[Rfam]
RNA sequence: CUUCACGAGUUGCCGUCGGCAAGCUCCGACUGGAACGGCACGCCAACCCCACGCUCGUGGGUGGCUCGGAUGACGAAGCGGUCGGCGCCCAUUCGGCGUUGACAAGAGCGCCUC
Number, nucleotide and partner (000 for none) at each position: 001c078002u077003u076004c075005a000006c000007g000008a000009g041010u000011u040012g039013c038014c037015g036016u035017c000018g000019g000020c000021a000022a031023g030024c000025u000026c000027c000028g000029a000030c023031u022032g000033g000034a000035a016036c015037g014038g013039c012040a011041c009042g065043c064044c063045a000046a000047c061048c060049c059050c000051a058052c057053g000054c000055u000056c000057g052058u051059g049060g048061g047062u000063g044064g043065c042066u000067c000068g000069g000070a000071u000072g000073a000074c000075g004076a003077a002078g001079c000080g000081g103082u102083c101084g100085g099086c098087g097088c096089c095090c000091a000092u000093u000094c000095g089096g088097c087098g086099u085100u084101g083102a082103c081104a000105a000106g000107a000108g000109c000110g000111c000112c000113u000114c000

Rfam assigns this 114-nucleotide RNA from Mycolicibacterium duvalii to the family "SAM (S-adenosyl methionine) riboswitch aptamer". Lineage of the source: Bacteria > Bacillati > Mycobacteriales > Mycobacterium > Mycobacterium (subgen. Mycolicibacterium). SAM-IV is a mRNA element that regulates gene expression via direct sensing of S-adenosylmethionine (SAM or AdoMet). The family's consensus secondary structure is taken from published work. Gene Ontology terms of the family: regulation of gene expression and S-adenosylmethionine metabolic process.